A member of the RNA family "MIR6151 microRNA precursor family" from Nicotiana tabacum, 71 nucleotides long. Its family is annotated with RISC complex and miRNA-mediated post-transcriptional gene silencing in the Gene Ontology. Taxonomically the source falls in Nicotiana (Eukaryota, Streptophytina, Spermatophyta, Gunneridae). It scores 85 bits against the family's covariance model. Pairs were carried over by alignment from the consensus structure, which was predicted with RNAalifold.
[Rfam]
Nucleotides: 071
Base pairs, nucleotide, nucleotide: 006064007063009061010060011059012058013057014056015055016054017053018052020050021049022048025046026045027044028043029042030041031040032039
Number, partner (000 for none) and nucleotide at each position: 001000a002000u003000u004000c005000g006064u007063u008000g009061g010060a011059u012058g013057a014056g015055u016054g017053u018052g019000a020050g021049g022048c023000a024000u025046u026045g027044g028043a029042u030041u031040g032039a033000u034000u035000u036000u037000g038000u039032u040031c041030a042029a043028u044027c045026c046025a047000u048022g049021c050020c051000c052018c053017a054016c055015a056014u057013u058012c059011a060010u061009c062000a063007g064006g065000g066000a067000g068000u069000c070000g071000u